The family of this 116-nucleotide RNA sequence from Melghirimyces algeriensis is "PyrR binding site". Rfam links the family to the GO terms pyrimidine nucleobase transport and pyrimidine nucleobase biosynthetic process. A search with the family's covariance model found it, with a score of 63 bits. It is annotated as a cis-regulatory element. For this family Rfam cites "Molecular recognition of pyr mRNA by the Bacillus subtilis attenuation regulatory protein PyrR" (Bonner et al., Nucleic Acids Res, 2001).
[Rfam]
RNA sequence: AGUCCCUUUAAAGGCAGUCCCGUGAGGCUGGCAAGGGAGGACGCAAUUUCUGUGCGUAACGGUAGGGUCCGUACGUGCUUUCUACCUCUCUGUCAGUUGACGGAGAGGUUUUUUAU
Numbered sequence: 001a002g003u004c005c006c007u008u009u010a011a012a013g014g015c016a017g018u019c020c021c022g023u024g025a026g027g028c029u030g031g032c033a034a035g036g037g038a039g040g041a042c043g044c045a046a047u048u049u050c051u052g053u054g055c056g057u058a059a060c061g062g063u064a065g066g067g068u069c070c071g072u073a074c075g076u077g078c079u080u081u082c083u084a085c086c087u088c089u090c091u092g093u094c095a096g097u098u099g100a101c102g103g104a105g106a107g108g109u110u111u112u113u114u115a116u
Stems, first nucleotide, its partner, number of pairs: 003038006015030005051077004056072001061069002084109011